[Rfam]
RNA: Rhizobiales sRNA Atu_C9
RNA sequence: GGUUAACGCGAGGAGACAGACAUGGGACUCACGCAAUCCUUGAAUGUUCUGUUGGUCAGUGCAGCGUUCGCCUUCGUCCUGUCCAUGCUCUUUAUUUGAGCUGGCCGGCCGGGGUGUGACGACUGGUAGUACCUGAACUCCCCUGAUCAAUCCGCCAAUGAAAAAGCGCAUGUCCCGCCCGACAUGCGCUUU
Number, nucleotide and partner (000 for none) at each position: 001g000002g000003u000004u000005a000006a000007c000008g000009c000010g000011a000012g000013g000014a000015g048016a047017c046018a045019g000020a000021c000022a000023u000024g040025g039026g038027a037028c000029u000030c000031a000032c000033g000034c000035a000036a000037u027038c026039c025040u024041u000042g000043a000044a000045u018046g017047u016048u015049c000050u000051g000052u000053u000054g000055g000056u000057c000058a000059g000060u000061g000062c000063a000064g000065c000066g000067u000068u000069c000070g000071c000072c000073u000074u000075c000076g000077u000078c000079c000080u000081g000082u000083c000084c000085a000086u000087g000088c000089u000090c000091u000092u000093u000094a000095u000096u000097u000098g000099a000100g000101c000102u000103g000104g000105c000106c000107g000108g000109c000110c000111g000112g000113g000114g000115u000116g000117u000118g000119a000120c000121g000122a000123c000124u000125g000126g000127u000128a000129g000130u000131a000132c000133c000134u000135g000136a000137a000138c000139u000140c000141c000142c000143c000144u000145g000146a000147u000148c000149a000150a000151u000152c000153c000154g000155c000156c000157a000158a000159u000160g000161a000162a000163a192164a191165a190166g189167c188168g187169c186170a185171u184172g183173u182174c181175c000176c000177g000178c000179c000180c000181g174182a173183c172184a171185u170186g169187c168188g167189c166190u165191u164192u163